The record is a 92-nucleotide RNA sequence from Kribbella voronezhensis, which matches "ZMP/ZTP riboswitch aptamer (pfl RNA motif)" in Rfam. Pairs were carried over by alignment from the consensus structure, which is taken from published work. Rfam links the family to the GO terms regulation of purine nucleotide biosynthetic process and one-carbon metabolic process.
[Rfam]
RNA sequence: GUGCCGGACCGCUACUGGCGUUGAGGUGGAAGACCACCGGGGAACGGUCCGUCGGCCUCGCCGACCUGAAGCCGCGCGCCUGGGCACCCGAC
Numbered sequence: 001g002u003g004c005c006g007g008a009c010c011g012c013u014a015c016u017g018g019c020g021u022u023g024a025g026g027u028g029g030a031a032g033a034c035c036a037c038c039g040g041g042g043a044a045c046g047g048u049c050c051g052u053c054g055g056c057c058u059c060g061c062c063g064a065c066c067u068g069a070a071g072c073c074g075c076g077c078g079c080c081u082g083g084g085c086a087c088c089c090g091a092c
Base pairs, nucleotide, nucleotide: 003053005051006050007049008048009047010046011045015041016040017080018079019078020077021076026037027036028035029034071085072084073083